[Rfam]
RNA sequence: UCGGCCUCCGGUUCACGCCCGGCACCAGUCGCGGCGACCCGGUCC
Numbered sequence: 001u002c003g004g005c006c007u008c009c010g011g012u013u014c015a016c017g018c019c020c021g022g023c024a025c026c027a028g029u030c031g032c033g034g035c036g037a038c039c040c041g042g043u044c045c
Base pairs, nucleotide, nucleotide: 003045004044008042009041010040011039016036017035018034019033020031021030022029023028
RNA: L31-Actinobacteria ribosomal protein leader
Organism: Actinomycetales bacterium JB111